RNA sequence: UUGUGCAGCCGGGGUGGUAGCGGUACCUUGAACCUGCAAUCCGCUAUAGCAGGGGUGAUGUUGUGCCGAGGGCAUUGGUCUGGUGAAGCCGCCCCUGGUAUGUGGCGUUGAUAUCUGGGUCUUACGCGACGAAAAUCCAUGAACCGUGUCAGGUCGGGAACGAAGCAGCACUAAGUGGAAUCUUUCGGGUGCCGUAAGGGUGCCUGGGUUGAGUUUACUGCCAGGGUAACGUUCGUUGGAUCAUGUUCGACGCACAACGCACGA
Numbered sequence: 001u002u003g004u005g006c007a008g009c010c011g012g013g014g015u016g017g018u019a020g021c022g023g024u025a026c027c028u029u030g031a032a033c034c035u036g037c038a039a040u041c042c043g044c045u046a047u048a049g050c051a052g053g054g055g056u057g058a059u060g061u062u063g064u065g066c067c068g069a070g071g072g073c074a075u076u077g078g079u080c081u082g083g084u085g086a087a088g089c090c091g092c093c094c095c096u097g098g099u100a101u102g103u104g105g106c107g108u109u110g111a112u113a114u115c116u117g118g119g120u121c122u123u124a125c126g127c128g129a130c131g132a133a134a135a136u137c138c139a140u141g142a143a144c145c146g147u148g149u150c151a152g153g154u155c156g157g158g159a160a161c162g163a164a165g166c167a168g169c170a171c172u173a174a175g176u177g178g179a180a181u182c183u184u185u186c187g188g189g190u191g192c193c194g195u196a197a198g199g200g201u202g203c204c205u206g207g208g209u210u211g212a213g214u215u216u217a218c219u220g221c222c223a224g225g226g227u228a229a230c231g232u233u234c235g236u237u238g239g240a241u242c243a244u245g246u247u248c249g250a251c252g253c254a255c256a257a258c259g260c261a262c263g264a
Stems, first nucleotide, its partner, number of pairs: 001264006008056003011029006018022001033053005061257006070248005077242010091227001094225006102218002104215003113209008121198006127189001130187005136179005146171004154163003
This 264-nucleotide sequence from Dorea formicigenerans belongs to the Rfam family "Bacterial large signal recognition particle RNA". Clan: SRP clan. For this family Rfam cites "SRPDB: Signal Recognition Particle Database" (Rosenblad et al., Nucleic Acids Res, 2003). Pairs were carried over by alignment from the consensus structure, which is taken from published work. Rfam's curators write: The signal recognition particle (SRP) is a universally conserved ribonucleoprotein involved in the co-translational targeting of proteins to membranes.